The record is an 82-nucleotide RNA from Oncorhynchus kisutch, which matches "mir-130 microRNA precursor family" in Rfam. Taxonomically the source falls in Oncorhynchus (Eukaryota, Actinopteri, Euteleosteomorpha, Salmonidae). The match comes from Rfam's covariance-model search (42 bits). A reference for the family is Houbaviy et al. (2003), "Embryonic stem cell-specific MicroRNAs", Dev Cell.
[Rfam]
RNA sequence: UAUUGCACCUUAUUCCUUUUAUAGUGUGCUACUUUUGAUCAGGACAAAAGUAGUGCACUAUGAAGGGAAUAGGGUGCUAUUU
Numbered sequence: 001u002a003u004u005g006c007a008c009c010u011u012a013u014u015c016c017u018u019u020u021a022u023a024g025u026g027u028g029c030u031a032c033u034u035u036u037g038a039u040c041a042g043g044a045c046a047a048a049a050g051u052a053g054u055g056c057a058c059u060a061u062g063a064a065g066g067g068a069a070u071a072g073g074g075u076g077c078u079a080u081u082u
Stems, first nucleotide, its partner, number of pairs: 002081001005077006012070008022060009